[Rfam]
RNA sequence: GUCGCACUUAAACUUAAGACUCUUUUUCUUGCAGCAGUGGUUUAAACAGAGGAACAAACAGGAAGAUCUUGUCGCCUUUGAGGGGCUGUGGUUGGGCCCCUCAAAGUGACUUUGGAGGUUCUACGCCA
Numbered sequence: 001g002u003c004g005c006a007c008u009u010a011a012a013c014u015u016a017a018g019a020c021u022c023u024u025u026u027u028c029u030u031g032c033a034g035c036a037g038u039g040g041u042u043u044a045a046a047c048a049g050a051g052g053a054a055c056a057a058a059c060a061g062g063a064a065g066a067u068c069u070u071g072u073c074g075c076c077u078u079u080g081a082g083g084g085g086c087u088g089u090g091g092u093u094g095g096g097c098c099c100c101u102c103a104a105a106g107u108g109a110c111u112u113u114g115g116a117g118g119u120u121c122u123a124c125g126c127c128a
Base pairs, nucleotide, nucleotide: 002057004055007052008051009050019042021040022039024037025034026033065120066119067118068117069116070115076106077105078104079103080102081101082100083099084098085097086096
Notes: The family of this 128-nucleotide RNA from Pan troglodytes is "Small nucleolar RNA SNORA68". U68 is a member of the H/ACA class of small nucleolar RNAs (snoRNAs) which act as guides in the the modification of uridines to pseudouridines. It is annotated as an H/ACA-box small nucleolar RNA.